[Rfam]
RNA sequence: GUCCAAAGUACAGUGAUAUUGUCUUUUCCAAGCACAUAUCUGAUUGUUUUGUGUGGAAAAGGACUGUUGUUGGGUGAUUUGCAU
Numbered sequence: 001g002u003c004c005a006a007a008g009u010a011c012a013g014u015g016a017u018a019u020u021g022u023c024u025u026u027u028c029c030a031a032g033c034a035c036a037u038a039u040c041u042g043a044u045u046g047u048u049u050u051g052u053g054u055g056g057a058a059a060a061g062g063a064c065u066g067u068u069g070u071u072g073g074g075u076g077a078u079u080u081g082c083a084u
Base pairs, nucleotide, nucleotide: 001084002083004081005080006079009076010075011074
The record is an 84-nucleotide RNA sequence from Crotophaga sulcirostris, which matches "Small nucleolar RNA SNORD121A" in Rfam. A search with the family's covariance model found it, with a score of 57 bits. Its family is annotated with RNA processing and nucleolus in the Gene Ontology. Lineage of the source: Eukaryota > Teleostomi > Coelurosauria > Neognathae > Crotophaga. By type it is a C/D-box small nucleolar RNA.